[Rfam]
RNA sequence: AAGUUGUUAUGAUGAAAAACACAGUCAACAGUUAUCCCUGUCUUAAAAACCAUGUGGAUUUAUUAAUUAGACUCUGAACAACAA
Numbered sequence: 001a002a003g004u005u006g007u008u009a010u011g012a013u014g015a016a017a018a019a020c021a022c023a024g025u026c027a028a029c030a031g032u033u034a035u036c037c038c039u040g041u042c043u044u045a046a047a048a049a050c051c052a053u054g055u056g057g058a059u060u061u062a063u064u065a066a067u068u069a070g071a072c073u074c075u076g077a078a079c080a081a082c083a084a
Stems, first nucleotide, its partner, number of pairs: 003082005
The family of this 84-nucleotide sequence from Rutstroemia sp. NJR-2017a BBW is "Small nucleolar RNA R38". About the family: snoR38 is a C/D box small nucleolar RNA conserved across yeast, human, Arabidopsis and rice. The base pairs follow the family's consensus structure, which was predicted with PFOLD. Taxonomically the source falls in Rutstroemia (Eukaryota, Opisthokonta, saccharomyceta, sordariomyceta). By type it is a C/D-box small nucleolar RNA.